[Rfam]
RNA sequence: GUGAACUACCAUUGAGCUGAAGACUCAGCGGCUUCUUCGGAAGCCACUGAAGACGUAGUUCGGUAGCUUCUUCGGAAGCCUGAGUUCACCAGACUCCUCAUCAGAAAUGAUGAGACCGUUUGAAAGGUCAUGACACCUGUGGUUGACGCAUCAGACCGCUGCUCUGUCGCCUGGAUUUAAGUAGGGCUGAGGAAAGGCCCGGUGAUCCAGGUGCAAAAAGCCUUUUGAACCUUGUCGAGAUGAGGUCGGA
Numbered sequence: 001g002u003g004a005a006c007u008a009c010c011a012u013u014g015a016g017c018u019g020a021a022g023a024c025u026c027a028g029c030g031g032c033u034u035c036u037u038c039g040g041a042a043g044c045c046a047c048u049g050a051a052g053a054c055g056u057a058g059u060u061c062g063g064u065a066g067c068u069u070c071u072u073c074g075g076a077a078g079c080c081u082g083a084g085u086u087c088a089c090c091a092g093a094c095u096c097c098u099c100a101u102c103a104g105a106a107a108u109g110a111u112g113a114g115a116c117c118g119u120u121u122g123a124a125a126g127g128u129c130a131u132g133a134c135a136c137c138u139g140u141g142g143u144u145g146a147c148g149c150a151u152c153a154g155a156c157c158g159c160u161g162c163u164c165u166g167u168c169g170c171c172u173g174g175a176u177u178u179a180a181g182u183a184g185g186g187c188u189g190a191g192g193a194a195a196g197g198c199c200c201g202g203u204g205a206u207c208c209a210g211g212u213g214c215a216a217a218a219a220g221c222c223u224u225u226u227g228a229a230c231c232u233u234g235u236c237g238a239g240a241u242g243a244g245g246u247c248g249g250a
Stems, first nucleotide, its partner, number of pairs: 001089007010031001012028002017022001092236003097114005118230011133167002137161001139159006147249001150246003169212009181203002184200004188195001
Rfam assigns this 250-nucleotide RNA sequence from Ktedonobacter racemifer to the family "HNH endonuclease-associated RNA and ORF (HEARO) RNA". The base pairs follow the family's consensus structure, which is taken from published work. For this family Rfam cites "Exceptional structured noncoding RNAs revealed by bacterial metagenome analysis" (Weinberg et al., Nature, 2009). The family has 139 seed sequences and 952 matches in Rfam 15.1.